RNA sequence: CACGAUAACGGCAAACCUAUCGAAAGGUAGGGACGCAAAGCUAAAGGGCCUUCCCGCUAUGGAUGGCAGCCAGCUACCGAAU
Numbered sequence: 001c002a003c004g005a006u007a008a009c010g011g012c013a014a015a016c017c018u019a020u021c022g023a024a025a026g027g028u029a030g031g032g033a034c035g036c037a038a039a040g041c042u043a044a045a046g047g048g049c050c051u052u053c054c055c056g057c058u059a060u061g062g063a064u065g066g067c068a069g070c071c072a073g074c075u076a077c078c079g080a081a082u
Base pairs, nucleotide, nucleotide: 003079004078011036012035016031017030018029019028020027021026034069039075040074041073042072046071047070048067049066050065

This 82-nucleotide RNA sequence from Paenibacillus graminis belongs to the Rfam family "c-di-GMP-I-GGC riboswitch aptamer". Gene Ontology term of the family: cyclic-di-GMP binding. The family's consensus secondary structure is taken from published work.